[Rfam]
RNA sequence: AGCAGAGUAAGUGAUUGUGCGUCAAGUGUCGAGUGAACGGGGAGUUGUCAUUCGGACGAAAAGCUUUAGGCUUGCGGUACAUUCAUUGCAUCCCGCUGCU
Numbered sequence: 001a002g003c004a005g006a007g008u009a010a011g012u013g014a015u016u017g018u019g020c021g022u023c024a025a026g027u028g029u030c031g032a033g034u035g036a037a038c039g040g041g042g043a044g045u046u047g048u049c050a051u052u053c054g055g056a057c058g059a060a061a062a063g064c065u066u067u068a069g070g071c072u073u074g075c076g077g078u079a080c081a082u083u084c085a086u087u088g089c090a091u092c093c094c095g096c097u098g099c100u
Stems, first nucleotide, its partner, number of pairs: 001100005010087005016081004020076003026057002029055008040093003044089001061073004

A member of the RNA family "THF (Tetrahydrofolate) riboswitch aptamer" from Pectinatus cerevisiiphilus, 100 nucleotides long. The source organism's lineage runs through Bacteria, Bacillati, Bacillota, Negativicutes and Pectinatus. From the family's description: Tetrahydrofolate (THF) riboswitch was first reported for Ames et al. as an RNA motif in 5' untranslated (5'-UTR)regions of folate transport and biosynthesis genes in Firmicutes genomes. Gene Ontology term of the family: tetrahydrofolate metabolic process. The family has 101 seed sequences and 747 matches in Rfam 15.1. For this family Rfam cites "The structure of a tetrahydrofolate-sensing riboswitch reveals two ligand binding sites in a single aptamer" (Trausch et al., Structure, 2011). It scores 92 bits against the family's covariance model.